[Rfam]
RNA sequence: CUGCAGCCCGACUUGAGCGGAAAUCCUUUUUUGCUUUUACUUCGUUUUCUAUUGAAGACAAAUUGUCUGCAAAAAAGAUUGGGAGCGGAAGGCGGAUUAAGC
Numbered sequence: 001c002u003g004c005a006g007c008c009c010g011a012c013u014u015g016a017g018c019g020g021a022a023a024u025c026c027u028u029u030u031u032u033g034c035u036u037u038u039a040c041u042u043c044g045u046u047u048u049c050u051a052u053u054g055a056a057g058a059c060a061a062a063u064u065g066u067c068u069g070c071a072a073a074a075a076a077g078a079u080u081g082g083g084a085g086c087g088g089a090a091g092g093c094g095g096a097u098u099a100a101g102c
Stems, first nucleotide, its partner, number of pairs: 009094002012091002017086002022080004028075007
A member of the RNA family "Flavo-1 RNA" from Chryseobacterium sp. SC28, 102 nucleotides long.
It is annotated as a small RNA.